[Rfam]
RNA sequence: UUACAGGACGCUUUAGCUAUUCAACUGUUUUGUCCAUCUCUGUCAAAGAACAAAUUGUUCUAUGUCAGAGUGACAAAACAGUUCAAUAGCUAAAGCAUACUAUAAC
Numbered sequence: 001u002u003a004c005a006g007g008a009c010g011c012u013u014u015a016g017c018u019a020u021u022c023a024a025c026u027g028u029u030u031u032g033u034c035c036a037u038c039u040c041u042g043u044c045a046a047a048g049a050a051c052a053a054a055u056u057g058u059u060c061u062a063u064g065u066c067a068g069a070g071u072g073a074c075a076a077a078a079c080a081g082u083u084c085a086a087u088a089g090c091u092a093a094a095g096c097a098u099a100c101u102a103u104a105a106c
Stems, first nucleotide, its partner, number of pairs: 001105003005101002011095011023083006029069004034064001049059004
Rfam assigns this 106-nucleotide RNA sequence from Plutella xylostella to the family "mir-8517 microRNA precursor family". Pairs were carried over by alignment from the consensus structure, which was predicted with RNAalifold.